Rfam assigns this 125-nucleotide RNA sequence from Oscillibacter sp. 1-3 to the family "Ribosomal protein L10 leader". The base pairs follow the family's consensus structure, which was predicted with CMfinder. It scores 59 bits against the family's covariance model. Lineage of the source: Bacteria > Bacillati > Bacillota > Eubacteriales > Oscillibacter. A reference for the family is Zengel and Lindahl (1994), "Diverse mechanisms for regulating ribosomal protein synthesis in Escherichia coli", Prog Nucleic Acid Res Mol Biol. It is annotated as a cis-regulatory leader.
[Rfam]
RNA sequence: UAUAAUACUUCUUGCGUUCCAAAGACAGCAGGUGGGCUCUGCCCGUAAGUCCUGCCGAGGAUGGCAGAUCGUGAGAUUGCUGCUCCGUCCGUGCGUCUUUGCGCGGACGGUUCUUUUUUGAACGC
Number, nucleotide and partner (000 for none) at each position: 001u000002a000003u000004a000005a000006u000007a000008c000009u000010u000011c000012u000013u000014g000015c000016g000017u000018u000019c000020c000021a000022a000023a000024g000025a000026c000027a000028g055029c054030a053031g052032g051033u000034g044035g043036g042037c000038u000039c000040u000041g000042c036043c035044c034045g000046u000047a000048a000049g000050u000051c032052c031053u030054g029055c028056c000057g000058a000059g000060g000061a000062u000063g000064g000065c000066a000067g000068a000069u000070c000071g000072u000073g000074a000075g000076a000077u000078u000079g000080c000081u000082g000083c000084u000085c110086c109087g108088u107089c106090c105091g104092u103093g102094c101095g000096u000097c000098u000099u000100u000101g094102c093103g092104c091105g090106g089107a088108c087109g086110g085111u000112u000113c000114u000115u000116u000117u000118u000119u000120g000121a000122a000123c000124g000125c000